[Rfam]
RNA sequence: GGGCAGGAUAUGUGAAGUUAUAUAACUUCACGUUUUUUUUUUUUAUUCGCACGGAGUGCUCAACAAAAAUCCUGCUCUGCGAGGCU
Numbered sequence: 001g002g003g004c005a006g007g008a009u010a011u012g013u014g015a016a017g018u019u020a021u022a023u024a025a026c027u028u029c030a031c032g033u034u035u036u037u038u039u040u041u042u043u044u045a046u047u048c049g050c051a052c053g054g055a056g057u058g059c060u061c062a063a064c065a066a067a068a069a070u071c072c073u074g075c076u077c078u079g080c081g082a083g084g085c086u
Stems, first nucleotide, its partner, number of pairs: 001077009012031006019024001034068004049059004
The record is an 86-nucleotide RNA sequence from Methylocucumis oryzae, which matches "traJ-II RNA" in Rfam. NCBI's taxonomy places the organism under Bacteria, Pseudomonadati, Gammaproteobacteria, Methylococcales, Methylocucumis.